Mammalian CPEB3 ribozyme: an 80-nucleotide RNA sequence from Alligator sinensis. Rfam links the family to the GO term RNA nuclease activity. A search with the family's covariance model found it, with a score of 35 bits. The family has 14 seed sequences and 5,706 matches in Rfam 15.1. The source organism's lineage runs through Eukaryota, Metazoa, Vertebrata, Euteleostomi and Alligator.
RNA sequence: AGAGGUCACAAGUUUGAGGCCAAAGCAGAAGCACUUAUGGCAUGGCCUUUCAGAUUGCAACAAAAUCUGCAAAUUCUGCU
Numbered sequence: 001a002g003a004g005g006u007c008a009c010a011a012g013u014u015u016g017a018g019g020c021c022a023a024a025g026c027a028g029a030a031g032c033a034c035u036u037a038u039g040g041c042a043u044g045g046c047c048u049u050u051c052a053g054a055u056u057g058c059a060a061c062a063a064a065a066u067c068u069g070c071a072a073a074u075u076c077u078g079c080u
Base pairs, nucleotide, nucleotide: 016049017048018047019046020045021044024080025079026078027077028076029075030074031043051069052068053067054066055065056064